[Rfam]
RNA sequence: AUAUCUUUCUCGGUCUUUUGGUAAGAUCUAGCGUAGUAUUUGUUUUUAUCGGUUUAAUAUCUGAUACGCGGUCCAUCGGGUCACAUGAUAUUAAAUUAAUGUCUCAUGGGGGAGAGUCAAUCAUAGUAGCUUGCUACUGGGGCUUUAGAGCGUCGCCCAUGCGUUGCACUAAAGCACGGGCCUGGCGCACCCCAC
Number, nucleotide and partner (000 for none) at each position: 001a000002u000003a000004u000005c000006u000007u000008u026009c025010u024011c000012g022013g000014u021015c020016u000017u000018u000019u000020g015021g014022u012023a000024a010025g009026a008027u000028c000029u000030a000031g000032c000033g000034u000035a000036g000037u000038a000039u000040u000041u000042g000043u000044u000045u000046u000047u066048a065049u064050c063051g062052g061053u000054u000055u000056a000057a000058u000059a000060u000061c052062u051063g050064a049065u048066a047067c000068g084069c000070g082071g081072u080073c079074c078075a000076u000077c000078g074079g073080g072081u071082c070083a000084c068085a000086u000087g000088a000089u000090a000091u000092u000093a000094a000095a000096u000097u000098a000099a000100u000101g000102u000103c000104u000105c000106a000107u000108g000109g000110g000111g000112g000113a146114g145115a144116g143117u142118c141119a000120a000121u000122c000123a000124u000125a000126g137127u136128a135129g134130c000131u000132u000133g000134c129135u128136a127137c126138u000139g000140g000141g118142g117143c116144u115145u114146u113147a000148g000149a000150g188151c187152g186153u185154c184155g183156c000157c179158c178159a000160u176161g175162c174163g000164u000165u000166g000167c000168a000169c000170u000171a000172a000173a000174g162175c161176a160177c000178g158179g157180g000181c000182c000183u155184g154185g153186c152187g151188c150189a000190c000191c000192c000193c000194a000195c000

A member of the RNA family "U2 spliceosomal RNA" from Morella rubra, 195 nucleotides long. Taxonomically the source falls in Morella (Eukaryota, Spermatophyta, fabids, Myricaceae). The match comes from Rfam's covariance-model search (110 bits). From the family's description: U2 is a small nuclear RNA (snRNA) component of the spliceosome (involved in pre-mRNA splicing). Complementary binding between U2 snRNA (in an area lying towards the 5' end but 3' to hairpin I) and the branchpoint sequence (BPS) of the intron results the bulging out of an unpaired adenosine, on the BPS, which initiates a nucleophilic attack at the intronic 5' splice site, thus starting the first of two transesterification reactions that mediate splicing. Rfam classes the family as a spliceosomal small nuclear RNA.